[Rfam]
RNA sequence: GAGAUCACCUCAAAUAGAGACACUGAUGAUUAUUGGGUUCAUAAGUGCUUCUCUUUGGGGUUGUCUUG
Numbered sequence: 001g002a003g004a005u006c007a008c009c010u011c012a013a014a015u016a017g018a019g020a021c022a023c024u025g026a027u028g029a030u031u032a033u034u035g036g037g038u039u040c041a042u043a044a045g046u047g048c049u050u051c052u053c054u055u056u057g058g059g060g061u062u063g064u065c066u067u068g
Stems, first nucleotide, its partner, number of pairs: 004064002007061005014055001016052004021047004026042003
Dot-bracket structure: ...((.(((((..(.((((.((((.(((...........))).)))).))))..).))))).))....